This 168-nucleotide sequence from Thermobrachium celere belongs to the Rfam family "Group II catalytic intron D1-D4-3". Gene Ontology term of the family: Group II intron splicing. Pairs were carried over by alignment from the consensus structure.
[Rfam]
RNA sequence: CCUAUCGUAAGGUGGAAUCUGAAGGAAGCCGGAGGCAAAGUCCCGGCUCGAUGAACAAGAACUACAUACGAGACUGUUUUGAGGUGGAUGAGUUUACAAAACAAAGUCCAAUAUUACCCGAACUUCAUGCAGUAAAUGUGGCGAGUAUAUUGGACGAAGGUGGUUGCU
Numbered sequence: 001c002c003u004a005u006c007g008u009a010a011g012g013u014g015g016a017a018u019c020u021g022a023a024g025g026a027a028g029c030c031g032g033a034g035g036c037a038a039a040g041u042c043c044c045g046g047c048u049c050g051a052u053g054a055a056c057a058a059g060a061a062c063u064a065c066a067u068a069c070g071a072g073a074c075u076g077u078u079u080u081g082a083g084g085u086g087g088a089u090g091a092g093u094u095u096a097c098a099a100a101a102c103a104a105a106g107u108c109c110a111a112u113a114u115u116a117c118c119c120g121a122a123c124u125u126c127a128u129g130c131a132g133u134a135a136a137u138g139u140g141g142c143g144a145g146u147a148u149a150u151u152g153g154a155c156g157a158a159g160g161u162g163g164u165u166g167c168u
Stems, first nucleotide, its partner, number of pairs: 002015005028168001030166003035161002040155004045150001046146005062141006073133003077129001080127005086109004092102004

Rfam 15.1 lists 4,274 matches to the family in 1,585 species.